Annotation: The family of this 102-nucleotide RNA from Trichosporon asahii is "Small nucleolar RNA Z13/snr52". Its family is annotated with nucleolus and RNA processing in the Gene Ontology. The family's RNA type in Rfam is C/D-box small nucleolar RNA. The match comes from Rfam's covariance-model search (76 bits). Taxonomically the source falls in Trichosporon asahii var. asahii (Eukaryota, Basidiomycota, Tremellomycetes, Trichosporon).

[Rfam]
RNA sequence: UCUUUCAUGAUGAAGCAUUUUACGGAUGUUAACCCUACGGGGACUGUCCGAGAGCGCAAAACAAGUGUGGACACCUCCGUUGCCUUCCUUCUGAACUACAAC
Numbered sequence: 001u002c003u004u005u006c007a008u009g010a011u012g013a014a015g016c017a018u019u020u021u022a023c024g025g026a027u028g029u030u031a032a033c034c035c036u037a038c039g040g041g042g043a044c045u046g047u048c049c050g051a052g053a054g055c056g057c058a059a060a061a062c063a064a065g066u067g068u069g070g071a072c073a074c075c076u077c078c079g080u081u082g083c084c085u086u087c088c089u090u091c092u093g094a095a096c097u098a099c100a101a102c
Base pairs, nucleotide, nucleotide: 001100023079024078025077026076